[Rfam]
Small nucleolar RNA SNORD14: a 124-nucleotide RNA from Malus domestica. The match comes from Rfam's covariance-model search (75 bits). The organism belongs to Malus, within Eukaryota. Pairs were carried over by alignment from the consensus structure, which was predicted with PFOLD. The literature on the family includes a 1996 paper in Nucleic Acids Res by Samarsky et al., "An essential domain in Saccharomyces cerevisiae U14 snoRNA is absent in vertebrates, but conserved in other yeasts". From the family's description: U14 small nucleolar RNA (U14 snoRNA) is required for early cleavages of eukaryotic precursor rRNAs. In yeasts, this molecule possess a stem-loop region (known as the Y-domain) which is essential for function.
RNA sequence: UAUCAAUGAUGACUAAAUAUAAGGCUUGUUUCUCAAGAACAUUCGCAGUGGCCGCCUAAGAGCUUUCGCCUUUUGCGAGGCUUGAGAGCUAAUGAUGCUUUAUCUUCCUUGGAUGUCUGAGAUU
Numbered sequence: 001u002a003u004c005a006a007u008g009a010u011g012a013c014u015a016a017a018u019a020u021a022a023g024g025c026u027u028g029u030u031u032c033u034c035a036a037g038a039a040c041a042u043u044c045g046c047a048g049u050g051g052c053c054g055c056c057u058a059a060g061a062g063c064u065u066u067c068g069c070c071u072u073u074u075g076c077g078a079g080g081c082u083u084g085a086g087a088g089c090u091a092a093u094g095a096u097g098c099u100u101u102a103u104c105u106u107c108c109u110u111g112g113a114u115g116u117c118u119g120a121g122a123u124u
Stems, first nucleotide, its partner, number of pairs: 002123003062089006